Background
Shown here is a 96-nucleotide sequence from Triticum aestivum, a member of the family "Small nucleolar RNA Z159/U59".

[Rfam]
RNA sequence: CCUUCCAAUGAUGACCAAACUAAAUACUUACGUUCUUCUGAUGUGCCACCUCAUGGCGUGGUGCGGAAGCAAUUUGGAGACCUGAACUGAGGAAAU
Numbered sequence: 001c002c003u004u005c006c007a008a009u010g011a012u013g014a015c016c017a018a019a020c021u022a023a024a025u026a027c028u029u030a031c032g033u034u035c036u037u038c039u040g041a042u043g044u045g046c047c048a049c050c051u052c053a054u055g056g057c058g059u060g061g062u063g064c065g066g067a068a069g070c071a072a073u074u075u076g077g078a079g080a081c082c083u084g085a086a087c088u089g090a091g092g093a094a095a096u
Stems, first nucleotide, its partner, number of pairs: 003094004
A search with the family's covariance model found it, with a score of 67 bits. The family's consensus secondary structure was predicted with PFOLD. Gene Ontology terms of the family: RNA processing and nucleolus. For this family Rfam cites "The high diversity of snoRNAs in plants: identification and comparative study of 120 snoRNA genes from Oryza sativa" (Chen et al., Nucleic Acids Res, 2003). The source organism's lineage runs through Eukaryota, Magnoliopsida, commelinids, Pooideae and Triticum.